[Rfam]
RNA sequence: AACCGCACGACACCGUCUGGCAGAGGCGGGGGACCCACGUAGUCCGACCGGCGCGGAAGCCAUCCGUGACGGUCUUGGGGUGAAGCCACCACAGCAGGGCGCGAGCCCAGCACCGGUGGCCGGGUGAACACUCUCCACCCGAACCCGACAGCUCACCUCGAAGGCGUCGGAGAGGCUCUAC
Numbered sequence: 001a002a003c004c005g006c007a008c009g010a011c012a013c014c015g016u017c018u019g020g021c022a023g024a025g026g027c028g029g030g031g032g033a034c035c036c037a038c039g040u041a042g043u044c045c046g047a048c049c050g051g052c053g054c055g056g057a058a059g060c061c062a063u064c065c066g067u068g069a070c071g072g073u074c075u076u077g078g079g080g081u082g083a084a085g086c087c088a089c090c091a092c093a094g095c096a097g098g099g100c101g102c103g104a105g106c107c108c109a110g111c112a113c114c115g116g117u118g119g120c121c122g123g124g125u126g127a128a129c130a131c132u133c134u135c136c137a138c139c140c141g142a143a144c145c146c147g148a149c150a151g152c153u154c155a156c157c158u159c160g161a162a163g164g165c166g167u168c169g170g171a172g173a174g175g176c177u178c179u180a181c
Stems, first nucleotide, its partner, number of pairs: 004166003011025001013023001027160005036077002078146003086119004122140004
Shown here is a 181-nucleotide RNA sequence from Angustibacter sp. Root456, a member of the family "c-di-AMP riboswitch aptamer (ydaO/yuaA leader)".
It scores 51 bits against the family's covariance model.
Lineage of the source: Bacteria > Bacillati > Actinomycetes > Kineosporiales > Angustibacter.